[Rfam]
RNA: FMN riboswitch aptamer (RFN element)
Organism: Dyella sp. M7H15-1
RNA sequence: CAACGUCUUCAGGGCGGGGUGGAAUUCCCCACCGGCGGUAGAGGUCGCAAGACUUGAGCCCGCGAGCGCUUUUGCCGUAUGCGAGUUCCUCGCAAGAGUCUGCGCAUUCUCGUGCGGACUUUCCAAUACGGCAGAAGGUCAGCAGAUCCGGUCAAAUGCCGGAGCCGACGGUUUACGUGGCAGCGGUUCGCCGCUGCGGCGCACAGUCCGGAUGAAAGAAGACGGCG
Dot-bracket structure: ...(((((((......(((.......)))...((((((...................[[))))..((..........................................................................))...(((((.......)))))]])).(((....................................))).......)))))))...